[Rfam]
c-di-AMP riboswitch aptamer (ydaO/yuaA leader): a 159-nucleotide RNA sequence from Alkalihalobacillus alcalophilus. Taxonomically the source falls in Alkalihalobacillus alcalophilus (Bacteria, Bacillati, Bacillota, Alkalihalobacillus). Gene Ontology terms of the family: cyclic-di-AMP binding and regulation of gene expression. It scores 91 bits against the family's covariance model.
RNA sequence: AUUCGUAUAUCGCUUAAUUCAUACGAAACGGGGGACCCAAUUUUUAAGGAUUACAGAAGAGCGUAAUCCUAGGGGUGAAUCGACUGACUUCUGCCAGCCGUAGGGCGACUCUUAUGCCCGAAUCCGACAGCUAACCUCGUCAGCGUUGAAAGAGACAAU
Numbered sequence: 001a002u003u004c005g006u007a008u009a010u011c012g013c014u015u016a017a018u019u020c021a022u023a024c025g026a027a028a029c030g031g032g033g034g035a036c037c038c039a040a041u042u043u044u045u046a047a048g049g050a051u052u053a054c055a056g057a058a059g060a061g062c063g064u065a066a067u068c069c070u071a072g073g074g075g076u077g078a079a080u081c082g083a084c085u086g087a088c089u090u091c092u093g094c095c096a097g098c099c100g101u102a103g104g105g106c107g108a109c110u111c112u113u114a115u116g117c118c119c120g121a122a123u124c125c126g127a128c129a130g131c132u133a134a135c136c137u138c139g140u141c142a143g144c145g146u147u148g149a150a151a152g153a154g155a156c157a158a159u
Stems, first nucleotide, its partner, number of pairs: 011145004018027003028140006038072001073125003081100002084097003103119004